[Rfam]
Rfam assigns this 67-nucleotide RNA sequence from Mycolicibacterium llatzerense to the family "ASdes TB sRNA". It scores 51 bits against the family's covariance model. NCBI's taxonomy places the organism under Bacteria, Bacillati, Mycobacteriales, Mycobacteriaceae, Mycobacterium (subgen. Mycolicibacterium). The base pairs follow the family's consensus structure, which is taken from published work. By type it is a small RNA.
RNA sequence: UGGCCGUCGGGUCGAUCUCGCGGCACACCACGAGAUAGUUGCGCAGCGCGAUGGCGUGCAGGUGCUC
Numbered sequence: 001u002g003g004c005c006g007u008c009g010g011g012u013c014g015a016u017c018u019c020g021c022g023g024c025a026c027a028c029c030a031c032g033a034g035a036u037a038g039u040u041g042c043g044c045a046g047c048g049c050g051a052u053g054g055c056g057u058g059c060a061g062g063u064g065c066u067c
Base pairs, nucleotide, nucleotide: 004062005061008058009057010029011028012027014026017023034055036053037052039051040050041049042048043047